RNA: Trypanosomatid snoRNA TB6Cs1H1
Organism: Trypanosoma theileri
RNA sequence: CGGUCAGCGAAAACACAGGCGCUCUGUUUACAACUGUCACUCCGCCUGCACCUGUGCUGCCCAAGA
Numbered sequence: 001c002g003g004u005c006a007g008c009g010a011a012a013a014c015a016c017a018g019g020c021g022c023u024c025u026g027u028u029u030a031c032a033a034c035u036g037u038c039a040c041u042c043c044g045c046c047u048g049c050a051c052c053u054g055u056g057c058u059g060c061c062c063a064a065g066a
Stems, first nucleotide, its partner, number of pairs: 002062002005059005016048006025039002